[Rfam]
RNA sequence: AGUUGUCUUCGGGGCGGGGUGUAAUUCCCCACCGGUGGUAAAGUCCACGAGCCAUUAUGGUUGAAUUGGUGAAAUUCCAAUACCGACGGUUAUAGUCCGGAUGAAAGAGGAUGAUU
Numbered sequence: 001a002g003u004u005g006u007c008u009u010c011g012g013g014g015c016g017g018g019g020u021g022u023a024a025u026u027c028c029c030c031a032c033c034g035g036u037g038g039u040a041a042a043g044u045c046c047a048c049g050a051g052c053c054a055u056u057a058u059g060g061u062u063g064a065a066u067u068g069g070u071g072a073a074a075u076u077c078c079a080a081u082a083c084c085g086a087c088g089g090u091u092a093u094a095g096u097c098c099g100g101a102u103g104a105a106a107g108a109g110g111a112u113g114a115u116u
Stems, first nucleotide, its partner, number of pairs: 003114008017029003031096002033085002035048004043083002051061003065081005087099003
About this RNA:
FMN riboswitch aptamer (RFN element): a 116-nucleotide sequence from Ruminococcus bovis. A search with the family's covariance model found it, with a score of 117 bits. The organism belongs to Ruminococcus, within Bacteria.